[Rfam]
RNA sequence: UAGUAAAUUUGUUCUUUUAGUAUUUCUCCAGUAGGUUUCCUCGAGGAGAAAGCCUCC
Numbered sequence: 001u002a003g004u005a006a007a008u009u010u011g012u013u014c015u016u017u018u019a020g021u022a023u024u025u026c027u028c029c030a031g032u033a034g035g036u037u038u039c040c041u042c043g044a045g046g047a048g049a050a051a052g053c054c055u056c057c
Base pairs, nucleotide, nucleotide: 034054035053036052037051038050040048041047042046
This 57-nucleotide RNA sequence from Salmo trutta belongs to the Rfam family "U7 small nuclear RNA". NCBI's taxonomy places the organism under Eukaryota, Opisthokonta, Neopterygii, Clupeocephala, Salmo.